[Rfam]
RNA sequence: UUCUUAUCAAGAGUGACGGAGGGAUCAGGCCCGAUGAAGUCCGGCAACCUUCAAGCAUAUGCUUGAAAAGGUGCUAAAUCCUGCAGACGUUUAGUCUGGCAGAUAAGAU
Numbered sequence: 001u002u003c004u005u006a007u008c009a010a011g012a013g014u015g016a017c018g019g020a021g022g023g024a025u026c027a028g029g030c031c032c033g034a035u036g037a038a039g040u041c042c043g044g045c046a047a048c049c050u051u052c053a054a055g056c057a058u059a060u061g062c063u064u065g066a067a068a069a070g071g072u073g074c075u076a077a078a079u080c081c082u083g084c085a086g087a088c089g090u091u092u093a094g095u096c097u098g099g100c101a102g103a104u105a106a107g108a109u
Stems, first nucleotide, its partner, number of pairs: 002108007013042001015041003021032003026083004043075004048071002050067004079101001084098005
RNA: SAM riboswitch aptamer (S box leader)